The record is a 113-nucleotide sequence from Hymenobacter lutimineralis, which matches "SAM riboswitch aptamer (S box leader)" in Rfam. Its family is annotated with regulation of gene expression in the Gene Ontology.
RNA sequence: UACUUAUCCAGAAAGACCGAGGGACUGGGCCCGACGACGUCUUAGCAACCUGACUUCACACAAGGUGCUAACUCCCGUUUCAGGCCGCGCUGCGGGCUGGAAGAAGAUAAGUA
Numbered sequence: 001u002a003c004u005u006a007u008c009c010a011g012a013a014a015g016a017c018c019g020a021g022g023g024a025c026u027g028g029g030c031c032c033g034a035c036g037a038c039g040u041c042u043u044a045g046c047a048a049c050c051u052g053a054c055u056u057c058a059c060a061c062a063a064g065g066u067g068c069u070a071a072c073u074c075c076c077g078u079u080u081c082a083g084g085c086c087g088c089g090c091u092g093c094g095g096g097c098u099g100g101a102a103g104a105a106g107a108u109a110a111g112u113a
Stems, first nucleotide, its partner, number of pairs: 001113008013043005021032003026077004044069004049065002052061001073105001078102006
Description:
Lineage of the source: Bacteria > Bacteroidota > Cytophagia > Hymenobacteraceae > Hymenobacter.